[Rfam]
RNA sequence: UUCCCUUUGUCAUCCUAUGCCUGCAGUUCCUGAUGAGGCUGGGACAGCAAAGGGAGGU
Numbered sequence: 001u002u003c004c005c006u007u008u009g010u011c012a013u014c015c016u017a018u019g020c021c022u023g024c025a026g027u028u029c030c031u032g033a034u035g036a037g038g039c040u041g042g043g044a045c046a047g048c049a050a051a052g053g054g055a056g057g058u
Base pairs, nucleotide, nucleotide: 002055003054004053005052006051007050009048010047013044014043015042016041017040019039020038021037022036
Shown here is a 58-nucleotide RNA from Ictalurus punctatus, a member of the family "mir-204 microRNA precursor family". The source organism's lineage runs through Eukaryota, Teleostomi, Euteleostomi, Otophysi and Ictalurus. Gene Ontology terms of the family: RISC complex and miRNA-mediated post-transcriptional gene silencing. The family's consensus secondary structure was predicted with RNAalifold. The sequence is in the family's curated seed alignment.